This 97-nucleotide sequence from Camellia sinensis belongs to the Rfam family "small nucleolar RNA snoR114". The family has 24 seed sequences and 1,645 matches in Rfam 15.1. Pairs were carried over by alignment from the consensus structure, which was predicted with RNAalifold. A reference for the family is Chen and Wu (2009), "Mining small RNA sequencing data: a new approach to identify small nucleolar RNAs in Arabidopsis", Nucleic Acids Res. Rfam classes the family as a C/D-box small nucleolar RNA.
RNA sequence: GAGCUGUGAAGAUCUAUUCUGCGCUCUUUGUGAUGGAUGGGUCUGUCACAACCGUCCGAUCUUUAAAUUCAGAUGAAAUCACAGCGCAUCUGAGCUC
Numbered sequence: 001g002a003g004c005u006g007u008g009a010a011g012a013u014c015u016a017u018u019c020u021g022c023g024c025u026c027u028u029u030g031u032g033a034u035g036g037a038u039g040g041g042u043c044u045g046u047c048a049c050a051a052c053c054g055u056c057c058g059a060u061c062u063u064u065a066a067a068u069u070c071a072g073a074u075g076a077a078a079u080c081a082c083a084g085c086g087c088a089u090c091u092g093a094g095c096u097c
Base pairs, nucleotide, nucleotide: 001097002096003095004094